6S / SsrS RNA: a 180-nucleotide RNA from Methylomonas sp. Rfam classes the family as a non-coding RNA gene. Pairs were carried over by alignment from the consensus structure, which is taken from published work. Rfam's curators write: E. coli 6S RNA was the first non coding RNA to be sequenced, but its function was unknown until recently. It consists of 184 nucleotides that fold into an extended hairpin structure with a large single-stranded internal bulge.
RNA sequence: AAUCUCCUGCGGCGUUCGAGCAGUGCUGGGUGUUUCCUGAACCUAUAUUUACCCCGGAAACUGUCUGCCUGUCAUGGUGUGCAUGCCUGUUCAUUCAGGAAGCCUGAUUGACUGGAUUUGGUUUCCACUUGAACCGUCGGUUCAAGGACGAAAGCAUGAGACGGCGCAGGCGGGAGAUCU
Dot-bracket structure: .(((((((((.((((.((...............(((.((((((............(((.((((....((.((((......((...((((......))))..)).....)))).))...)))).)))............)))))).))).............))))))..)))))))))..